[Rfam]
RNA: c-di-AMP riboswitch aptamer (ydaO/yuaA leader)
Organism: Terracoccus luteus
RNA sequence: UUCGAAGGUCGGCUUGAACCCUUCACGGCAGGAGCGGGGGACCCACUUCCACGGGCGUCGAGAGACGUCCUCGGGGUGAAGUCCCACGAGCCAUUGCGGCUCCACGGACCGGGCAGUACCUCAGCCCGAACCCGACAGCUCACCUCGUAGGCGUCGAGAGGUAGAUCC
Numbered sequence: 001u002u003c004g005a006a007g008g009u010c011g012g013c014u015u016g017a018a019c020c021c022u023u024c025a026c027g028g029c030a031g032g033a034g035c036g037g038g039g040g041a042c043c044c045a046c047u048u049c050c051a052c053g054g055g056c057g058u059c060g061a062g063a064g065a066c067g068u069c070c071u072c073g074g075g076g077u078g079a080a081g082u083c084c085c086a087c088g089a090g091c092c093a094u095u096g097c098g099g100c101u102c103c104a105c106g107g108a109c110c111g112g113g114c115a116g117u118a119c120c121u122c123a124g125c126c127c128g129a130a131c132c133c134g135a136c137a138g139c140u141c142a143c144c145u146c147g148u149a150g151g152c153g154u155c156g157a158g159a160g161g162u163a164g165a166u167c168c
Base pairs, nucleotide, nucleotide: 012152013151014150019032020031034148035147036146037145038144039143044073074133075132076131082108083107084106111127112126113125114124